[Rfam]
Record summary
This 103-nucleotide sequence from Miscanthus lutarioriparius belongs to the Rfam family "Small nucleolar RNA Z118/Z121/Z120". For this family Rfam cites "The high diversity of snoRNAs in plants: identification and comparative study of 120 snoRNA genes from Oryza sativa" (Chen et al., Nucleic Acids Res, 2003). Rfam classes the family as a C/D-box small nucleolar RNA. The family has 7 seed sequences and 435 matches in Rfam 15.1. Gene Ontology terms of the family: RNA processing and nucleolus. The match comes from Rfam's covariance-model search (76 bits). Taxonomically the source falls in Miscanthus (Eukaryota, Embryophyta, Petrosaviidae, commelinids).
RNA sequence: UGUUUGCCGUGAGGACUCCUAUUAGGACGGUAUCUUAAGGGUAUGACUUUUAAGUGCAACCCUUGUGAUUAUACCAAAACUGAAUAUGGUUUCUGAGCAAAUC
Numbered sequence: 001u002g003u004u005u006g007c008c009g010u011g012a013g014g015a016c017u018c019c020u021a022u023u024a025g026g027a028c029g030g031u032a033u034c035u036u037a038a039g040g041g042u043a044u045g046a047c048u049u050u051u052a053a054g055u056g057c058a059a060c061c062c063u064u065g066u067g068a069u070u071a072u073a074c075c076a077a078a079a080c081u082g083a084a085u086a087u088g089g090u091u092u093c094u095g096a097g098c099a100a101a102u103c
Base pairs, nucleotide, nucleotide: 002102003101004100005099006098007097038064039063040062041061